[Rfam]
RNA: U5 spliceosomal RNA
RNA sequence: AUCACAGCGUUCACUUCAUUACGCACCAAUCUUUCGCCUUUUACUAAAGGUUGCCGUGAAAGGGACGCAUCAAUGUGACUUCAUCAAUUUUUGCGGGACCUUCGGGUCCCA
Numbered sequence: 001a002u003c004a005c006a007g008c009g010u011u012c013a014c015u016u017c018a019u020u021a022c023g024c025a026c027c028a029a030u031c032u033u034u035c036g037c038c039u040u041u042u043a044c045u046a047a048a049g050g051u052u053g054c055c056g057u058g059a060a061a062g063g064g065a066c067g068c069a070u071c072a073a074u075g076u077g078a079c080u081u082c083a084u085c086a087a088u089u090u091u092u093g094c095g096g097g098a099c100c101u102u103c104g105g106g107u108c109c110c111a
Stems, first nucleotide, its partner, number of pairs: 003077004008067005015060004027053008095110006